Shown here is a 78-nucleotide RNA from Schistosoma haematobium, a member of the family "mir-3492 microRNA precursor family". A search with the family's covariance model found it, with a score of 58 bits. Lineage of the source: Eukaryota > Lophotrochozoa > Platyhelminthes > Strigeidida > Schistosoma. Gene Ontology terms of the family: RISC complex and miRNA-mediated post-transcriptional gene silencing.
[Rfam]
RNA sequence: AGCUUUUCGAAUCCGUGCUGAGAUUUCGUCAUUAACCAACCCAUUAGAGCUGACCAGGCUUCCAAGAUAAGUGAAGUU
Numbered sequence: 001a002g003c004u005u006u007u008c009g010a011a012u013c014c015g016u017g018c019u020g021a022g023a024u025u026u027c028g029u030c031a032u033u034a035a036c037c038a039a040c041c042c043a044u045u046a047g048a049g050c051u052g053a054c055c056a057g058g059c060u061u062c063c064a065a066g067a068u069a070a071g072u073g074a075a076g077u078u
Stems, first nucleotide, its partner, number of pairs: 002077005008071001011068003016064002020061003024058003028054003